[Rfam]
RNA sequence: AUGGAGGUGAUGAUUAUUUCCCCAAAUGAUCGAAGUUGAAUAAACUGAGCGAAUUUUUUGUUUCUCUUUUUUGAGAAACCAAGCCAAAUGUUCUGAUCCAU
Numbered sequence: 001a002u003g004g005a006g007g008u009g010a011u012g013a014u015u016a017u018u019u020c021c022c023c024a025a026a027u028g029a030u031c032g033a034a035g036u037u038g039a040a041u042a043a044a045c046u047g048a049g050c051g052a053a054u055u056u057u058u059u060g061u062u063u064c065u066c067u068u069u070u071u072u073g074a075g076a077a078a079c080c081a082a083g084c085c086a087a088a089u090g091u092u093c094u095g096a097u098c099c100a101u
Stems, first nucleotide, its partner, number of pairs: 001101005
The family of this 101-nucleotide RNA sequence from Castanea mollissima is "Small nucleolar RNA Z103". The family's RNA type in Rfam is C/D-box small nucleolar RNA. NCBI's taxonomy places the organism under Eukaryota, Streptophyta, Embryophyta, Tracheophyta, Castanea. Its family is annotated with nucleolus and RNA processing in the Gene Ontology. The family's consensus secondary structure was predicted with PFOLD.